[Rfam]
RNA: t44 RNA
Organism: Nitrococcus mobilis
Nucleotides: 089
Stems, first nucleotide, its partner, number of pairs: 023079008035069008048060005
Number, partner (000 for none) and nucleotide at each position: 001000g002000c003000u004000u005000g006000g007000u008000u009000c010000c011000g012000g013000a014000u015000a016000c017000a018000c019000c020000a021000c022000a023079c024078a025077u026076a027075c028074a029073u030072c031000g032000u033000c034000a035069c036068a037067c038066g039065c040064g041063a042062c043000c044000g045000g046000g047000u048060g049059c050058c051057c052056a053000a054000u055000g056052u057051g058050g059049g060048u061000u062042g063041u064040c065039g066038c067037g068036u069035g070000c071000g072030g073029g074028u075027g076026u077025a078024u079023g080000g081000a082000g083000g084000c085000u086000c087000a088000a089000c